Source information:
A member of the RNA family "c-di-GMP-I riboswitch aptamer" from Peptococcaceae bacterium SCADC1_2_3, 90 nucleotides long. It scores 38 bits against the family's covariance model. From the family's description: GEMM was predicted in a large-scale screen for bacterial structured RNA regulatory elements.
RNA sequence: GAUAGUAAAAGGUACUAAAUCUUGUCGAAAGACAGGGUGCAAAGCAAUGGGGCUAAGGCCAUUUAUAGCUAGUAUUGCCAGGUUACCAUG
Dot-bracket structure: ...........((.......((((((....))))))..))..(((..((((......((.(....).)).....)..))).)))......